Shown here is a 112-nucleotide RNA sequence from Nakamurella alba, a member of the family "SAM (S-adenosyl methionine) riboswitch aptamer".

[Rfam]
RNA sequence: GGUGAUGAGUGUCAGCGACAGGCCCUGGCGUGCUGACCGGCAACCCUCGCAUGCUGUGGGGUGCCCCAGGUGAACACCAGGUCCCGGCACCGUGCCGGGGCAACCAGCAGGU
Numbered sequence: 001g002g003u004g005a006u007g008a009g010u011g012u013c014a015g016c017g018a019c020a021g022g023c024c025c026u027g028g029c030g031u032g033c034u035g036a037c038c039g040g041c042a043a044c045c046c047u048c049g050c051a052u053g054c055u056g057u058g059g060g061g062u063g064c065c066c067c068a069g070g071u072g073a074a075c076a077c078c079a080g081g082u083c084c085c086g087g088c089a090c091c092g093u094g095c096c097g098g099g100g101c102a103a104c105c106a107g108c109a110g111g112u
Stems, first nucleotide, its partner, number of pairs: 001078004009038001011037006022029001039065003044061003048056002081101009
Lineage of the source: Bacteria > Bacillati > Actinomycetota > Nakamurellales > Nakamurella.